[Rfam]
This 50-nucleotide sequence from Halosegnis rubeus belongs to the Rfam family "eL15-Euryarchaeota ribosomal protein leader".

RNA sequence: CCUGCUACGGCAGGCCGGAAUGUGACACGACGGACGUGUUGAACCACGAA
Numbered sequence: 001c002c003u004g005c006u007a008c009g010g011c012a013g014g015c016c017g018g019a020a021u022g023u024g025a026c027a028c029g030a031c032g033g034a035c036g037u038g039u040u041g042a043a044c045c046a047c048g049a050a
Base pairs, nucleotide, nucleotide: 001014002013003012004011005010017045018044024040025039026038027037028036
A reference for the family is Eckert and Weinberg (2020), "Discovery of 20 novel ribosomal leader candidates in bacteria and archaea", BMC Microbiol. It is annotated as a cis-regulatory leader. The source organism's lineage runs through Archaea, Methanobacteriota, Halobacteriales, Natronomonadaceae and Halosegnis.